[Rfam]
RNA sequence: UCCACUAACUACUGUAAGUCUCUCUGGAUAAGAGCGUCUGCUAAAUGACUCACG
Numbered sequence: 001u002c003c004a005c006u007a008a009c010u011a012c013u014g015u016a017a018g019u020c021u022c023u024c025u026g027g028a029u030a031a032g033a034g035c036g037u038c039u040g041c042u043a044a045a046u047g048a049c050u051c052a053c054g
Stems, first nucleotide, its partner, number of pairs: 013043001014041003020036001022034004
The record is a 54-nucleotide RNA sequence from Salvelinus namaycush, which matches "UnaL2 LINE 3' element" in Rfam.
The eel long interspersed element (LINE) UnaL2 and its partner short interspersed element (SINE) share a conserved 3' tail containing a stem-loop that is critical for their retrotransposition. Presumably, the first step of retrotransposition is the recognition of their 3' tails by UnaL2-encoded reverse transcriptase. The solution structure of a 17-nucleotide RNA derived from the 3' tail of UnaL2 was determined by NMR.
The match comes from Rfam's covariance-model search (60 bits).
Rfam classes the family as a cis-regulatory element.
Lineage of the source: Eukaryota > Metazoa > Euteleosteomorpha > Salmonidae > Salvelinus.
Pairs were carried over by alignment from the consensus structure, which is taken from published work.